This 86-nucleotide RNA from Microbacterium sp. SLBN-146 belongs to the Rfam family "ZMP/ZTP riboswitch aptamer (pfl RNA motif)".
[Rfam]
Nucleotides: 086
Stems, first nucleotide, its partner, number of pairs: 003053001005051001008049005015042002017074005026038004063081002066078002
Number, partner (000 for none) and nucleotide at each position: 001000u002000c003053g004000c005051c006000u007000u008049g009048u010047c011046g012045c013000g014000a015042c016041u017074g018073g019072c020071g021070u022000u023000g024000a025000g026038g027037u028036g029035g030000g031000g032000a033000u034000a035029c036028c037027a038026c039000c040000g041016g042015g043000g044000a045012g046011c047010g048009g049008c050000u051005g052000a053003c054000a055000c056000u057000g058000g059000c060000a061000u062000u063081c064080g065000a066078c067077c068000g069000c070021a071020c072019g073018c074017c075000u076000g077067g078066g079000c080064c081063g082000g083000g084000u085000c086000u